[Rfam]
Rfam assigns this 586-nucleotide part of an RNA from Nakamurella aerolata to the family "Bacterial large subunit ribosomal RNA". Rfam links the family to the GO terms structural constituent of ribosome and ribosome.
RNA sequence: CGCGCGGCAGGACGGAAAGACCCCGGGACCUUUACUAUAGCUUGGUAUUGGUGUUCGGUUCGACUUGUGUAGGAUAGGUGGGAGACUUUGAAGCAUUCACGCCAGUGAGUGUGGAGUCAACGUUGAAAUACCACUCUGGUCGUACUGGAUAUCUAACCUAGGUCCGUAAUCCGGAUCAGGGACAGUGCCUGGUGGGUAGUUUAACUGGGGCGGUUGCCUCCUAAAGAGUAACGGAGGCGCUCAAAGGUUCCCUCAGCCUGGUUGGCAAUCAGGUUUCGAGUGUAAGUGCAAAAGGGAGCUUGACUGCGAGAUCGACGGAUCGAGCAGGGACGAAAGUCGGAACUAGUGAUCCGGCACCACCUUGUGGAAGGGGUGUCGCUCAACGGAUAAAAGGUACCCCGGGGAUAACAGGCUGAUCUUGCCCAAGAGUCCAUAUCGACGGCAUGGUUUGGCACCUCGAUGUCGGCUCGUCGCAUCCUGGGGCCGGAGUAGGUCCCAAGGGUUGGGCUGUUCGCCCAUUAAAGCGGCACGCGAGCUGGGUUUAGAACGUCGUGAGACAGUUCGGUCCCUAUCCGCCGCGCGCGCA
Numbered sequence: 001c002g003c004g005c006g007g008c009a010g011g012a013c014g015g016a017a018a019g020a021c022c023c024c025g026g027g028a029c030c031u032u033u034a035c036u037a038u039a040g041c042u043u044g045g046u047a048u049u050g051g052u053g054u055u056c057g058g059u060u061c062g063a064c065u066u067g068u069g070u071a072g073g074a075u076a077g078g079u080g081g082g083a084g085a086c087u088u089u090g091a092a093g094c095a096u097u098c099a100c101g102c103c104a105g106u107g108a109g110u111g112u113g114g115a116g117u118c119a120a121c122g123u124u125g126a127a128a129u130a131c132c133a134c135u136c137u138g139g140u141c142g143u144a145c146u147g148g149a150u151a152u153c154u155a156a157c158c159u160a161g162g163u164c165c166g167u168a169a170u171c172c173g174g175a176u177c178a179g180g181g182a183c184a185g186u187g188c189c190u191g192g193u194g195g196g197u198a199g200u201u202u203a204a205c206u207g208g209g210g211c212g213g214u215u216g217c218c219u220c221c222u223a224a225a226g227a228g229u230a231a232c233g234g235a236g237g238c239g240c241u242c243a244a245a246g247g248u249u250c251c252c253u254c255a256g257c258c259u260g261g262u263u264g265g266c267a268a269u270c271a272g273g274u275u276u277c278g279a280g281u282g283u284a285a286g287u288g289c290a291a292a293a294g295g296g297a298g299c300u301u302g303a304c305u306g307c308g309a310g311a312u313c314g315a316c317g318g319a320u321c322g323a324g325c326a327g328g329g330a331c332g333a334a335a336g337u338c339g340g341a342a343c344u345a346g347u348g349a350u351c352c353g354g355c356a357c358c359a360c361c362u363u364g365u366g367g368a369a370g371g372g373g374u375g376u377c378g379c380u381c382a383a384c385g386g387a388u389a390a391a392a393g394g395u396a397c398c399c400c401g402g403g404g405a406u407a408a409c410a411g412g413c414u415g416a417u418c419u420u421g422c423c424c425a426a427g428a429g430u431c432c433a434u435a436u437c438g439a440c441g442g443c444a445u446g447g448u449u450u451g452g453c454a455c456c457u458c459g460a461u462g463u464c465g466g467c468u469c470g471u472c473g474c475a476u477c478c479u480g481g482g483g484c485c486g487g488a489g490u491a492g493g494u495c496c497c498a499a500g501g502g503u504u505g506g507g508c509u510g511u512u513c514g515c516c517c518a519u520u521a522a523a524g525c526g527g528c529a530c531g532c533g534a535g536c537u538g539g540g541u542u543u544a545g546a547a548c549g550u551c552g553u554g555a556g557a558c559a560g561u562u563c564g565g566u567c568c569c570u571a572u573c574c575g576c577c578g579c580g581c582g583c584g585c586a
Base pairs, nucleotide, nucleotide: 001582002581003580004579005578006577007576008575010574011573012572014569015568022403023402024401025400026399027398028395029394030393031392032391034200035199036198037197041192042191044189045188046187047186050153051152052151053150054149055148056147057146058145059144061142062141063140064139065138067136077135078134079133080132081131084118085117086116093112094111095110096109097108098107099106100105157180158179159178161177162176163175164174165173166172203215204214205213206212216238217237218236219235220234221233239384241341242340247299248298249297250296251295252294253279254278256274257273258272259271260270261269280289281288304327305326306325307324310321311320312319329338330337331336352378353377354376355375356374357373358372360371361370412453413452414451416450417447418446420444421443422442423441427437428436464539465537466536467535468534469531470528471527472526473525474524477502478501480497481496482495483494484493485492504518505517506516507515508514545563546562547561548560549558550557551556

Rfam 15.1 lists 51,934 matches to the family in 10,816 species.